c-di-GMP-I riboswitch aptamer: an 81-nucleotide RNA sequence from Blautia obeum. NCBI's taxonomy places the organism under Bacteria, Bacillati, Clostridia, Lachnospirales, Blautia. Rfam's curators write: GEMM was predicted in a large-scale screen for bacterial structured RNA regulatory elements. The family's consensus secondary structure is taken from published work.
Nucleotides: 081
Stems, first nucleotide, its partner, number of pairs: 012037002017032006040075004047071002049067003056061001
Number, partner (000 for none) and nucleotide at each position: 001000u002000u003000u004000a005000a006000a007000a008000a009000a010000a011000g012037g013036c014000a015000u016000a017032g018031c019030c020029g021028g022027g023000g024000a025000a026000a027022u028021c029020c030019g031018g032017u033000g034000g035000c036013g037012c038000a039000a040075a041074a042073c043072u044000a045000u046000a047071g048070g049067g050066u051065c052000u053000a054000a055000g056061c057000a058000a059000a060000u061056g062000u063000a064000u065051g066050a067049c068000a069000g070048c071047c072043a073042g074041u075040u076000g077000c078000a079000g080000g081000a

Its family is annotated with cyclic-di-GMP binding in the Gene Ontology.